[Rfam]
RNA sequence: GUUGCAAAUUUGAGGCCAUAGCAGAAUUGUUCAUAGCACAGCCUGUCAGAUUCAACAAAUCUGCAAACUUUGUU
Dot-bracket structure: .............[[[...((((((..((.......))..]]]...((((((.....)))))).....))))))
A member of the RNA family "Mammalian CPEB3 ribozyme" from Alligator mississippiensis, 74 nucleotides long. NCBI's taxonomy places the organism under Eukaryota, Metazoa, Craniata, Vertebrata, Alligator. The family's consensus secondary structure is taken from published work. It scores 37 bits against the family's covariance model. Gene Ontology term of the family: RNA nuclease activity. Rfam's curators write: The mammalian CPEB3 ribozyme is a self cleaving RNA located in the second intron of the CPEB3 gene which belongs to a family of genes regulating messenger RNA polyadenylation.